[Rfam]
RNA: Small nucleolar RNA SNORA5
RNA sequence: UGCAGCUGCGUCAAAUUCAGUCCUCAUCCAGCCCGUGCUGGGGACUGGCCAAACAGCUGCCACAGCAACAGCUGUAGCUCAUGAGCCCCACUGUCCCUCUCCCUCGGCCCUGGGGAUAAUAAAUGCUACAGACACCG
Numbered sequence: 001u002g003c004a005g006c007u008g009c010g011u012c013a014a015a016u017u018c019a020g021u022c023c024u025c026a027u028c029c030a031g032c033c034c035g036u037g038c039u040g041g042g043g044a045c046u047g048g049c050c051a052a053a054c055a056g057c058u059g060c061c062a063c064a065g066c067a068a069c070a071g072c073u074g075u076a077g078c079u080c081a082u083g084a085g086c087c088c089c090a091c092u093g094u095c096c097c098u099c100u101c102c103c104u105c106g107g108c109c110c111u112g113g114g115g116a117u118a119a120u121a122a123a124u125g126c127u128a129c130a131g132a133c134a135c136c137g
Stems, first nucleotide, its partner, number of pairs: 002060004018047009028037001074129005086115005